Rfam assigns this 127-nucleotide RNA from Zygosaccharomyces rouxii to the family "Small nucleolar RNA SNORD14". The match comes from Rfam's covariance-model search (70 bits). Pairs were carried over by alignment from the consensus structure, which was predicted with PFOLD. Rfam classes the family as a C/D-box small nucleolar RNA.
[Rfam]
RNA sequence: UCACUAUGAUGAAACUUUGGUUCCUUGAACAUUCGCAGUUUCCACGGUAGGAGUACGCCUUUCGAACCCAUCGAUAUAGUGCUCCCGGUGACCGCUCAUUUGAGACCUUCCUAGGAUGUCUGAGUGA
Numbered sequence: 001u002c003a004c005u006a007u008g009a010u011g012a013a014a015c016u017u018u019g020g021u022u023c024c025u026u027g028a029a030c031a032u033u034c035g036c037a038g039u040u041u042c043c044a045c046g047g048u049a050g051g052a053g054u055a056c057g058c059c060u061u062u063c064g065a066a067c068c069c070a071u072c073g074a075u076a077u078a079g080u081g082c083u084c085c086c087g088g089u090g091a092c093c094g095c096u097c098a099u100u101u102g103a104g105a106c107c108u109u110c111c112u113a114g115g116a117u118g119u120c121u122g123a124g125u126g127a
Stems, first nucleotide, its partner, number of pairs: 001127004051084006